A member of the RNA family "Eukaryotic small subunit ribosomal RNA" from Paramicrosporidium saccamoebae, 160 nucleotides of a longer RNA. NCBI's taxonomy places the organism under Eukaryota, Opisthokonta, Fungi, Rozellomycota, Paramicrosporidium. The family's consensus secondary structure is taken from published work. Clan: SSU clan.

RNA sequence: CCGCCCGUCGCUACUACCGAUUGAAUGGCUUAGUGAGGCCUUUGGAUCGGCCUGAUUUCCUUUGGGGAGUCGGGUGUGAGAAAUUGGACAAACUUGGUCAUUUAGAGGAAGUAAAAGUCGUAACAAGGUUUCCGUAGGUGAACCUGCGGAAGGAUCAUUA
Numbered sequence: 001c002c003g004c005c006c007g008u009c010g011c012u013a014c015u016a017c018c019g020a021u022u023g024a025a026u027g028g029c030u031u032a033g034u035g036a037g038g039c040c041u042u043u044g045g046a047u048c049g050g051c052c053u054g055a056u057u058u059c060c061u062u063u064g065g066g067g068a069g070u071c072g073g074g075u076g077u078g079a080g081a082a083a084u085u086g087g088a089c090a091a092a093c094u095u096g097g098u099c100a101u102u103u104a105g106a107g108g109a110a111g112u113a114a115a116a117g118u119c120g121u122a123a124c125a126a127g128g129u130u131u132c133c134g135u136a137g138g139u140g141a142a143c144c145u146g147c148g149g150a151a152g153g154a155u156c157a158u159u160a
Stems, first nucleotide, its partner, number of pairs: 001127001003124001006120002009117001012113004017108002021104001023103008032094003037089001039087002043083001047079003050075011129152010